[Rfam]
RNA sequence: GCAUGACAUGAUGGCAUACCAUCUUUCGGGACUGACUCACUUUGGAGACACCCUUUUUUUCUGCUGAUCAUGC
Number, nucleotide and partner (000 for none) at each position: 001g073002c072003a071004u070005g069006a068007c000008a000009u000010g000011a000012u000013g000014g000015c000016a000017u000018a000019c000020c000021a000022u000023c000024u000025u000026u000027c000028g000029g000030g000031a000032c000033u000034g000035a000036c000037u000038c000039a000040c000041u000042u000043u000044g000045g000046a000047g000048a000049c000050a000051c000052c000053c000054u000055u000056u000057u000058u000059u000060u000061c000062u000063g000064c000065u000066g000067a000068u006069c005070a004071u003072g002073c001

The record is a 73-nucleotide sequence from Chanos chanos, which matches "Small nucleolar RNA SNORD2" in Rfam.
The family has 17 seed sequences and 1,116 matches in Rfam 15.1.
Taxonomically the source falls in Chanos (Eukaryota, Ostariophysi, Gonorynchiformes, Chanidae).
Rfam links the family to the GO terms nucleolus and RNA processing.
By type it is a C/D-box small nucleolar RNA.